The family of this 97-nucleotide sequence from Pararhodobacter aggregans is "Rhodo-rpoB RNA". The base pairs follow the family's consensus structure, which is taken from published work. A search with the family's covariance model found it, with a score of 63 bits.
RNA sequence: GGCUCGGGAGCGGUCCUUUGGGACGGACCGCAGGAAUGGAGCCUCCGCUUCUGAUUCGCAUGGGGUGCAGCCCGGCCGAGGCCCGACGGCAGGCGCA
Numbered sequence: 001g002g003c004u005c006g007g008g009a010g011c012g013g014u015c016c017u018u019u020g021g022g023a024c025g026g027a028c029c030g031c032a033g034g035a036a037u038g039g040a041g042c043c044u045c046c047g048c049u050u051c052u053g054a055u056u057c058g059c060a061u062g063g064g065g066u067g068c069a070g071c072c073c074g075g076c077c078g079a080g081g082c083c084c085g086a087c088g089g090c091a092g093g094c095g096c097a
Base pairs, nucleotide, nucleotide: 001043002042003041004040005039010031011030012029013028014027015026016025066097067096068095070094071093075090076089077088078087